[Rfam]
RNA sequence: GCUCGGUUGCUGUGGUUGCAGGCCCUGCCCGCCUGCGCGCCCGCUGACAGGGAGGCUUAGGGCGGAGGGAAGCUGGUCCGUUGGUCUGUCGGGAACGAGG
Numbered sequence: 001g002c003u004c005g006g007u008u009g010c011u012g013u014g015g016u017u018g019c020a021g022g023c024c025c026u027g028c029c030c031g032c033c034u035g036c037g038c039g040c041c042c043g044c045u046g047a048c049a050g051g052g053a054g055g056c057u058u059a060g061g062g063c064g065g066a067g068g069g070a071a072g073c074u075g076g077u078c079c080g081u082u083g084g085u086c087u088g089u090c091g092g093g094a095a096c097g098a099g100g
Stems, first nucleotide, its partner, number of pairs: 002099004007095002010092003014086003018081002021078004025072001028069003033065004039056001040054001042052001044050002